RNA: Small nucleolar RNA SNORA38
RNA sequence: CCCUCCUACUUAAACCCAUGUCAGUGUUUCCUUAUCUUUGGACACAUAAGAUUUGAAGGCAAAGAAAUGUGGCCUUGGAGAAAUCUGGGACCAGUUUGCUCCCUGCAGGCUCAAGAUCAACCAUCCCACGUAG
Numbered sequence: 001c002c003c004u005c006c007u008a009c010u011u012a013a014a015c016c017c018a019u020g021u022c023a024g025u026g027u028u029u030c031c032u033u034a035u036c037u038u039u040g041g042a043c044a045c046a047u048a049a050g051a052u053u054u055g056a057a058g059g060c061a062a063a064g065a066a067a068u069g070u071g072g073c074c075u076u077g078g079a080g081a082a083a084u085c086u087g088g089g090a091c092c093a094g095u096u097u098g099c100u101c102c103c104u105g106c107a108g109g110c111u112c113a114a115g116a117u118c119a120a121c122c123a124u125c126c127c128a129c130g131u132a133g
Stems, first nucleotide, its partner, number of pairs: 002059003006055001019044004026032001071126002075123001093111007